[Rfam]
RNA sequence: UUGUGCUAAGGGCAAACCUGUCGAAAGGCAGGGACGCAAAGCUACAGGGUCUAAGGCCGUAGGGCUAUGACAGCCAGCUGCCACG
Number, nucleotide and partner (000 for none) at each position: 001u000002u000003g000004u000005g000006c000007u000008a000009a000010g000011g000012g037013c036014a000015a000016a000017c032018c031019u030020g029021u028022c027023g000024a000025a000026a000027g022028g021029c020030a019031g018032g017033g000034a000035c000036g013037c012038a000039a000040a079041g078042c077043u076044a000045c000046a000047g075048g074049g071050u070051c069052u000053a000054a000055g000056g065057c064058c063059g000060u000061a000062g000063g058064g057065c056066u000067a000068u000069g051070a050071c049072a000073g000074c048075c047076a043077g042078c041079u040080g000081c000082c000083a000084c000085g000